[Rfam]
Nucleotides: 085
Stems, first nucleotide, its partner, number of pairs: 015035008055073005
Number, partner (000 for none) and nucleotide at each position: 001000a002000a003000a004000a005000a006000a007000g008000a009000g010000g011000g012000g013000g014000u015035g016034u017033g018032g019031g020030g021029g022028a023000u024000g025000a026000a027000a028022u029021c030020c031019c032018c033017u034016g035015c036000c037000g038000u039000a040000u041000u042000a043000g044000g045000g046000g047000g048000a049000u050000g051000c052000u053000c054000a055073g056072g057071u058070g059069c060000a061000c062000g063000u064000a065000c066000u067000a068000u069059g070058c071057a072056c073055c074000g075000u076000c077000g078000a079000a080000a081000g082000g083000g084000a085000c